Description: The record is a 369-nucleotide RNA from Candidatus Enterococcus clewellii, which matches "Bacterial RNase P class B" in Rfam.
RNA sequence: AUUUUCGGGUUACCGCGGUCUGAGUAAUCAGGCUGAGGAAAGUCCAUGCUCGCACAGACUGAGAUGUCUGUAGUGUUCGUGCUUAGCGAAACCAUAAGCUAAGGUACUCUUUCAGAGUAACGGCAGGAAAAAACGGCUAAGGCUUCGGCUAUGUCUGAGUAUCCUUGAAAGUGCCACAGUGACGAAGCAGUACGGGAAACCGUACUGGUGGAACGCGGUAAACCCCUCGAGCGAGCAACCCAAAUUUUGGUAGGGGCACUCUUCUAAAGGAAAUGAACGAGUAGGAGAGGCAGAAUACUUCUGCAGAUAGAUGGUAACCAUCAGUUUUUUUACCUGAGAAAAUUCUGAUACAGAACAUGGCUUAUAGAA
Numbered sequence: 001a002u003u004u005u006c007g008g009g010u011u012a013c014c015g016c017g018g019u020c021u022g023a024g025u026a027a028u029c030a031g032g033c034u035g036a037g038g039a040a041a042g043u044c045c046a047u048g049c050u051c052g053c054a055c056a057g058a059c060u061g062a063g064a065u066g067u068c069u070g071u072a073g074u075g076u077u078c079g080u081g082c083u084u085a086g087c088g089a090a091a092c093c094a095u096a097a098g099c100u101a102a103g104g105u106a107c108u109c110u111u112u113c114a115g116a117g118u119a120a121c122g123g124c125a126g127g128a129a130a131a132a133a134c135g136g137c138u139a140a141g142g143c144u145u146c147g148g149c150u151a152u153g154u155c156u157g158a159g160u161a162u163c164c165u166u167g168a169a170a171g172u173g174c175c176a177c178a179g180u181g182a183c184g185a186a187g188c189a190g191u192a193c194g195g196g197a198a199a200c201c202g203u204a205c206u207g208g209u210g211g212a213a214c215g216c217g218g219u220a221a222a223c224c225c226c227u228c229g230a231g232c233g234a235g236c237a238a239c240c241c242a243a244a245u246u247u248u249g250g251u252a253g254g255g256g257c258a259c260u261c262u263u264c265u266a267a268a269g270g271a272a273a274u275g276a277a278c279g280a281g282u283a284g285g286a287g288a289g290g291c292a293g294a295a296u297a298c299u300u301c302u303g304c305a306g307a308u309a310g311a312u313g314g315u316a317a318c319c320a321u322c323a324g325u326u327u328u329u330u331u332a333c334c335u336g337a338g339a340a341a342a343u344u345c346u347g348a349u350a351c352a353g354a355a356c357a358u359g360g361c362u363u364a365u366a367g368a369a
Stems, first nucleotide, its partner, number of pairs: 004369003007365001008319007016035006040363003044360005049235005054071006077230003081226001082103006104121001105119006122225002125165004135155003141150003171223002173219003188207008239255003259289007290304006321348004327342005
Record summary:
By type it is a ribozyme. The family is grouped with related families in Rfam's "RNaseP clan". Lineage of the source: Bacteria > Bacillota > Bacilli > Lactobacillales > Enterococcus. Rfam's curators write: Ribonuclease P (RNase P) is a ubiquitous endoribonuclease, found in archaea, bacteria and eukarya as well as chloroplasts and mitochondria. For this family Rfam cites "Ribonuclease P: unity and diversity in a tRNA processing ribozyme" (Frank and Pace, Annu Rev Biochem, 1998).